[Rfam]
RNA sequence: GGGGGAUGAUGAGUGGUCGAUGCUCGCGGGAUGCGAGAGGGGUGUACCGGCCUAAAGCCUGGUUACGACAACCCGGGCGCUCCAAUCCUUUGUACCUUCUGAUCCC
Numbered sequence: 001g002g003g004g005g006a007u008g009a010u011g012a013g014u015g016g017u018c019g020a021u022g023c024u025c026g027c028g029g030g031a032u033g034c035g036a037g038a039g040g041g042g043u044g045u046a047c048c049g050g051c052c053u054a055a056a057g058c059c060u061g062g063u064u065a066c067g068a069c070a071a072c073c074c075g076g077g078c079g080c081u082c083c084a085a086u087c088c089u090u091u092g093u094a095c096c097u098u099c100u101g102a103u104c105c106c
Stems, first nucleotide, its partner, number of pairs: 001106004015096003023037005039083006047077002060075002062072002
The record is a 106-nucleotide sequence from Rhodamnia argentea, which matches "Small nucleolar RNA Z279/snoR105/snoR108" in Rfam.
Pairs were carried over by alignment from the consensus structure, which was predicted with PFOLD.
This family includes the plant snoRNAs known as Z279, snoR105 and snoR108.
It scores 67 bits against the family's covariance model.
The family is grouped with related families in Rfam's "snoU13 clan".